[Rfam]
RNA sequence: UAUUAAAAAAUUCAUUCAUUUCACUGUUAAAAAUUGUCUUGAUCUACAGAAUAACCAAACAAUUACACGUGAUGUACCAUGUGCACCUUAUGCGGACAUUUAGGGACCGAUUUUUAACUGUAAAAUGAAUAAAAUUUUUAAUA
Numbered sequence: 001u002a003u004u005a006a007a008a009a010a011u012u013c014a015u016u017c018a019u020u021u022c023a024c025u026g027u028u029a030a031a032a033a034u035u036g037u038c039u040u041g042a043u044c045u046a047c048a049g050a051a052u053a054a055c056c057a058a059a060c061a062a063u064u065a066c067a068c069g070u071g072a073u074g075u076a077c078c079a080u081g082u083g084c085a086c087c088u089u090a091u092g093c094g095g096a097c098a099u100u101u102a103g104g105g106a107c108c109g110a111u112u113u114u115u116a117a118c119u120g121u122a123a124a125a126u127g128a129a130u131a132a133a134a135u136u137u138u139u140a141a142u143a
Stems, first nucleotide, its partner, number of pairs: 002142008011133002014130003018126004023121002027117006

The record is a 143-nucleotide RNA from Gossypium aridum, which matches "MIR7502 microRNA precursor family" in Rfam. The base pairs follow the family's consensus structure, which was predicted with RNAalifold. It scores 85 bits against the family's covariance model. Lineage of the source: Eukaryota > Euphyllophyta > eudicotyledons > Gunneridae > Gossypium.